[Rfam]
RNA sequence: AAUAAAAGUAGAGGUUGCACUUUUCAAGAGUAAAGUAUUUUAGCAGGCAUGCGUUUAAAAGAUACUUAAAAGGGGAAAGUGCCGAAGAAUGAUACCGGCAGGUAUAUAUUCUGGGGUUCAGUUUAACAGGCUGGGCACUGUCAGUAACAUGAUGCGCUACAUUUAAU
Dot-bracket structure: .....(.((((.....(((((((((.......((((((((...................))))))))......)))))))))...(((((((((((....))))).))))))((.((((((((.....)))))))).)).(((......)))....)))).).....
RNA: Lysine riboswitch aptamer